Nucleotides: 404
Stems, first nucleotide, its partner, number of pairs: 001404004008397002012336007022083004035064001037062004093388005101313002104310001154165004168183005185309006206293002337376003341372002
Number, partner (000 for none) and nucleotide at each position: 001404u002403c003402c004401u005000c006000u007000u008397c009396a010000a011000c012336g013335c014334u015333g016332c017331g018330u019000u020000u021000c022083u023082a024081u025080g026000c027000u028000a029000c030000a031000a032000a033000c034000g035064g036000a037062g038061a039060g040059a041000u042000g043000u044000a045000c046000g047000c048000g049000c050000a051000a052000g053000c054000g055000g056000a057000a058000g059040u060039c061038u062037c063000g064035c065000a066000u067000u068000c069000u070000a071000u072000c073000a074000a075000a076000c077000u078000g079000g080025c081024a082023u083022a084000u085000g086000a087000g088000a089000a090000a091000u092000u093388c094387g095386g096385a097384g098000u099000a100000a101313c102312u103000u104310c105000u106000u107000c108000a109000c110000a111000c112000c113000a114000c115000u116000c117000a118000c119000c120000c121000a122000a123000u124000g125000u126000c127000g128000c129000c130000u131000g132000c133000c134000u135000a136000g137000u138000g139000c140000g141000g142000g143000a144000u145000g146000a147000c148000g149000g150000g151000u152000c153000u154165g155164c156163c157162c158000g159000c160000g161000a162157g163156g164155g165154u166000c167000u168183g169182g170181c171180g172179u173000g174000a175000c176000u177000u178000c179172a180171c181170g182169u183168c184000u185309g186308c187307a188306a189305u190304u191000g192000g193000c194000a195000u196000c197000a198000g199000a200000a201000a202000a203000g204000c205000a206293g207292g208000g209000c210000c211000c212000g213000g214000g215000c216000c217000g218000u219000c220000c221000u222000c223000a224000u225000g226000u227000a228000u229000a230000c231000c232000c233000u234000g235000a236000u237000u238000c239000c240000c241000u242000c243000u244000g245000g246000g247000a248000g249000g250000a251000g252000g253000g254000g255000g256000a257000a258000g259000a260000u261000g262000a263000g264000g265000u266000c267000u268000g269000g270000a271000c272000u273000c274000g275000g276000u277000g278000u279000c280000c281000c282000u283000a284000u285000g286000g287000g288000a289000g290000a291000g292207c293206c294000g295000u296000u297000g298000c299000g300000a301000a302000a303000a304190g305189a306188u307187u308186g309185u310104g311000c312102a313101g314000a315000g316000c317000a318000c319000u320000u321000g322000a323000g324000u325000g326000c327000g328000a329000u330018a331017c332016g333015c334014a335013g336012c337376g338375u339374c340000u341372g342371g343000a344000u345000c346000c347000u348000g349000g350000c351000u352000g353000g354000c355000u356000u357000u358000g359000g360000c361000u362000g363000g364000c365000c366000a367000g368000g369000g370000a371342c372341u373000u374339g375338a376337c377000a378000a379000u380000u381000c382000a383000a384097u385096u386095c387094c388093g389000a390000u391000c392000a393000u394000u395000c396009u397008g398000u399000u400000g401004a402003g403002g404001a
The record is a 404-nucleotide RNA from Colletotrichum salicis, which matches "Nuclear RNase P" in Rfam. The family has 116 seed sequences and 3,848 matches in Rfam 15.1. The base pairs follow the family's consensus structure, which is taken from published work. Its Rfam clan is "RNaseP clan". Rfam classes the family as a ribozyme.